[Rfam]
RNA sequence: CGCGUGCUCCGGGGCUCGGUGAAAUUCCGAACCGGCGGUGACAGUCCGCGACCCGUUGGCCAGUGUUCGCGUGGCGGCAUGGUGGUCAACGGUGGACCCGGUGAAACUCCGGGACCGACGGUGACAGUCCGGAUGGGAGGCAGCACGCG
Dot-bracket structure: ..((((((((......(((.......))).[[((((((.....[[))))...((((((((((....................))))))))))....(((((.......)))))]])).(((.....]]))).......)).))))))..
A member of the RNA family "FMN riboswitch aptamer (RFN element)" from Phytoactinopolyspora halophila, 149 nucleotides long.
Rfam links the family to the GO term FMN binding.
About the family: The RFN element is a highly conserved domain that is found frequently in the 5'-untranslated regions of prokaryotic mRNAs that encode for flavin mononucleotide (FMN) biosynthesis and transport proteins.
The organism belongs to Phytoactinopolyspora, within Bacteria.
The match comes from Rfam's covariance-model search (96 bits).